The family of this 54-nucleotide sequence from Oncorhynchus tshawytscha is "UnaL2 LINE 3' element".
It scores 57 bits against the family's covariance model.
Taxonomically the source falls in Oncorhynchus (Eukaryota, Opisthokonta, Gnathostomata, Salmoninae).
The family's RNA type in Rfam is cis-regulatory element.
Rfam describes the family as follows. The eel long interspersed element (LINE) UnaL2 and its partner short interspersed element (SINE) share a conserved 3' tail containing a stem-loop that is critical for their retrotransposition. Presumably, the first step of retrotransposition is the recognition of their 3' tails by UnaL2-encoded reverse transcriptase. The solution structure of a 17-nucleotide RNA derived from the 3' tail of UnaL2 was determined by NMR.
The family's consensus secondary structure is taken from published work.

RNA sequence: CUUAACUGCUCCUGUAAGUCGCUCUGGAUAAGAGCAUCUGCUAAAUGACAAACA
Dot-bracket structure: ............((((....(((((.....)))))...))).)...........